A member of the RNA family "Bacterial small subunit ribosomal RNA" from Granulicatella sp. WM01, 355 nucleotides of a longer RNA. The source organism's lineage runs through Bacteria, Bacillati, Bacillota, Bacilli and Granulicatella. Its family is annotated with ribosome and structural constituent of ribosome in the Gene Ontology.
RNA sequence: GGCGUAAAGCGAGAGCAGGCGGUUCCUUAAGUCUGAUGUGAAAGCCCACGGCUCAACCGUGGAGGGUCAUUGGAAACUGGGGGACUUGAGUGCAGAAGAGGAGAGUGGAAUUCCAUGUGUAGCGGUGAAAUGCGUAGAUAUAUGGAGGAACACCAGUGGCGAAGGCGACUCUCUGGUCUGUAACUGACGCUGAGUCUCGAAAGCGUGGGGAGCAAACAGGAUUAGAUACCCUGGUAGUCCACGCCGUAAACGAUGAGUGCUAAGUGUUGGAAGGUUUCCACCUUUCAGUGCUGCAGUUAACGCAUUAAGCACUCCGCCUGGGGAGUACGACCGCAAGGUUGAAACUCAAAGGAAU
Numbered sequence: 001g002g003c004g005u006a007a008a009g010c011g012a013g014a015g016c017a018g019g020c021g022g023u024u025c026c027u028u029a030a031g032u033c034u035g036a037u038g039u040g041a042a043a044g045c046c047c048a049c050g051g052c053u054c055a056a057c058c059g060u061g062g063a064g065g066g067u068c069a070u071u072g073g074a075a076a077c078u079g080g081g082g083g084a085c086u087u088g089a090g091u092g093c094a095g096a097a098g099a100g101g102a103g104a105g106u107g108g109a110a111u112u113c114c115a116u117g118u119g120u121a122g123c124g125g126u127g128a129a130a131u132g133c134g135u136a137g138a139u140a141u142a143u144g145g146a147g148g149a150a151c152a153c154c155a156g157u158g159g160c161g162a163a164g165g166c167g168a169c170u171c172u173c174u175g176g177u178c179u180g181u182a183a184c185u186g187a188c189g190c191u192g193a194g195u196c197u198c199g200a201a202a203g204c205g206u207g208g209g210g211a212g213c214a215a216a217c218a219g220g221a222u223u224a225g226a227u228a229c230c231c232u233g234g235u236a237g238u239c240c241a242c243g244c245c246g247u248a249a250a251c252g253a254u255g256a257g258u259g260c261u262a263a264g265u266g267u268u269g270g271a272a273g274g275u276u277u278c279c280a281c282c283u284u285u286c287a288g289u290g291c292u293g294c295a296g297u298u299a300a301c302g303c304a305u306u307a308a309g310c311a312c313u314c315c316g317c318c319u320g321g322g323g324a325g326u327a328c329g330a331c332c333g334c335a336a337g338g339u340u341g342a343a344a345c346u347c348a349a350a351g352g353a354a355u
Base pairs, nucleotide, nucleotide: 001318002317003316009315011198012197013196014195016192018191019190020189022085023084024083025082026081027080028079030078031077032074033073034072035071036070037069038068046062047061048060049059050058051057089185090184091183092181093180094179095178096177100174101173102172103171104170105169106168107151111147112146113145114144115143116142117141118140122133123132124131159166160165203244204243205242206241207240208239212238213237217233218232219231220230255314256313257312258311259310260309263292264291265290266289267288268287269286270285271284272283273282274281296303297302320347321346322345329340330339331338332337